[Rfam]
RNA sequence: UGCGAUGAGUCGAGAACGUCAGGCAGCUUUCGAGCUGUUCCGCGCAAGCGGCUAGUGACAUUUCGAGUGGGACACGUUUACCUACCGGAUGAUGUAGGGUGUCCGAUCAUGAUGCGUUGUGGAGCGC
Numbered sequence: 001u002g003c004g005a006u007g008a009g010u011c012g013a014g015a016a017c018g019u020c021a022g023g024c025a026g027c028u029u030u031c032g033a034g035c036u037g038u039u040c041c042g043c044g045c046a047a048g049c050g051g052c053u054a055g056u057g058a059c060a061u062u063u064c065g066a067g068u069g070g071g072a073c074a075c076g077u078u079u080a081c082c083u084a085c086c087g088g089a090u091g092a093u094g095u096a097g098g099g100u101g102u103c104c105g106a107u108c109a110u111g112a113u114g115c116g117u118u119g120u121g122g123a124g125c126g127c
Stems, first nucleotide, its partner, number of pairs: 018059004022039006040051004071103005081098005114127005
A member of the RNA family "Enterococcus sRNA 68 (Lacto-3 RNA)" from Paucilactobacillus vaccinostercus, 127 nucleotides long. The family's RNA type in Rfam is small RNA. NCBI's taxonomy places the organism under Bacteria, Bacilli, Lactobacillales, Lactobacillaceae, Paucilactobacillus vaccinostercus. A search with the family's covariance model found it, with a score of 98 bits.